[Rfam]
RNA sequence: CCGCAUACCUGGCCUAGUCCCGGUGCACCCGGGAGCGGAGGACCCACUUUUUUUGGGGUUAAUCCUUAUGUUAUGUAAGGAGGGAUGAGAACAACUCUUUCGCCAUCCUACCCGUCAGCUAACUUCGUCGGCUAAUGCGAGGGAGGUC
Numbered sequence: 001c002c003g004c005a006u007a008c009c010u011g012g013c014c015u016a017g018u019c020c021c022g023g024u025g026c027a028c029c030c031g032g033g034a035g036c037g038g039a040g041g042a043c044c045c046a047c048u049u050u051u052u053u054u055g056g057g058g059u060u061a062a063u064c065c066u067u068a069u070g071u072u073a074u075g076u077a078a079g080g081a082g083g084g085a086u087g088a089g090a091a092c093a094a095c096u097c098u099u100u101c102g103c104c105a106u107c108c109u110a111c112c113c114g115u116c117a118g119c120u121a122a123c124u125u126c127g128u129c130g131g132c133u134a135a136u137g138c139g140a141g142g143g144a145g146g147u148c
Stems, first nucleotide, its partner, number of pairs: 011133004018034006035128006045055002056113003064080004083108004
Shown here is a 148-nucleotide RNA from Aneurinibacillus migulanus, a member of the family "c-di-AMP riboswitch aptamer (ydaO/yuaA leader)".